ffh sRNA: a 52-nucleotide RNA from Seohaeicola zhoushanensis. The family's consensus secondary structure is taken from published work. A search with the family's covariance model found it, with a score of 61 bits. The family's RNA type in Rfam is small RNA.
[Rfam]
RNA sequence: UGAUCGGGGGAUCGACCUCCACCAGCGCGAUGCGCCCGUGGGGGCGUUUGUG
Dot-bracket structure: ...............(((((((..((((...))))..)))))))........